[Rfam]
RNA: transfer-messenger RNA
RNA sequence: GGGGAUGAUCGGUUUCGACAGCGGCUGUUGAAGCAGGGGAAGCGUGUCGAGGAAGCGGCAAUGAUCUCGUAAACCAUAUGUCGCAAAAAAUAAUCGCCAAUACCAAGAGCGAUUCCCAGUCCUUCGCCCUCGCUGCCUAAUAAGCAGUGAGUGAGGGACCCUUAAUGGGUGUCAGCCCGGGAGUGUUCCCGACCCGGACCCUGGCAUAAUCUAGGGGACUAAACCAUCGAGCCCGGUCACGGGGUUCGAUGGGAAAUCAAACAGUGACUGGGCCCGUCGGCGACUUGUUCGCGUGAUCGCCGGGGCCGAGAAAAUCGCAGCGAACUGCACACGGAGAAGCCCUGAUUCUGCACCGGUGGACGCGGGUUCGAUUCCCGCCAUCUCCACGA
Numbered sequence: 001g002g003g004g005a006u007g008a009u010c011g012g013u014u015u016c017g018a019c020a021g022c023g024g025c026u027g028u029u030g031a032a033g034c035a036g037g038g039g040a041a042g043c044g045u046g047u048c049g050a051g052g053a054a055g056c057g058g059c060a061a062u063g064a065u066c067u068c069g070u071a072a073a074c075c076a077u078a079u080g081u082c083g084c085a086a087a088a089a090a091u092a093a094u095c096g097c098c099a100a101u102a103c104c105a106a107g108a109g110c111g112a113u114u115c116c117c118a119g120u121c122c123u124u125c126g127c128c129c130u131c132g133c134u135g136c137c138u139a140a141u142a143a144g145c146a147g148u149g150a151g152u153g154a155g156g157g158a159c160c161c162u163u164a165a166u167g168g169g170u171g172u173c174a175g176c177c178c179g180g181g182a183g184u185g186u187u188c189c190c191g192a193c194c195c196g197g198a199c200c201c202u203g204g205c206a207u208a209a210u211c212u213a214g215g216g217g218a219c220u221a222a223a224c225c226a227u228c229g230a231g232c233c234c235g236g237u238c239a240c241g242g243g244g245u246u247c248g249a250u251g252g253g254a255a256a257u258c259a260a261a262c263a264g265u266g267a268c269u270g271g272g273c274c275c276g277u278c279g280g281c282g283a284c285u286u287g288u289u290c291g292c293g294u295g296a297u298c299g300c301c302g303g304g305g306c307c308g309a310g311a312a313a314a315u316c317g318c319a320g321c322g323a324a325c326u327g328c329a330c331a332c333g334g335a336g337a338a339g340c341c342c343u344g345a346u347u348c349u350g351c352a353c354c355g356g357u358g359g360a361c362g363c364g365g366g367u368u369c370g371a372u373u374c375c376c377g378c379c380a381u382c383u384c385c386a387c388g389a
Stems, first nucleotide, its partner, number of pairs: 001385007019358002022355003030348003034344005043333005048069005055084005129151008170206006177197004185219006224252009235269006271307005282298002287325004362378005